[Rfam]
RNA sequence: UUGUAACAAGAAUCGGUGCUAAAGGGUCCUGCCCAACGGCUACUGACAGGUGCUGUCGGGGCAGGAACAUUUUAGCACCGGUUCGUGUUACAAA
Numbered sequence: 001u002u003g004u005a006a007c008a009a010g011a012a013u014c015g016g017u018g019c020u021a022a023a024g025g026g027u028c029c030u031g032c033c034c035a036a037c038g039g040c041u042a043c044u045g046a047c048a049g050g051u052g053c054u055g056u057c058g059g060g061g062c063a064g065g066a067a068c069a070u071u072u073u074a075g076c077a078c079c080g081g082u083u084c085g086u087g088u089u090a091c092a093a094a
Base pairs, nucleotide, nucleotide: 003091004090005089006088007087008086010084011083012082013081014080015079016078017077018076019075020074021073022072023071024070026068027067029065030064032060033059034058036056037055043049044048
Overview:
Shown here is a 94-nucleotide RNA sequence from Sorghum bicolor, a member of the family "MIR5387 microRNA precursor family". The family's consensus secondary structure was predicted with RNAalifold. Rfam 15.1 lists 1,029 matches to the family in 9 species.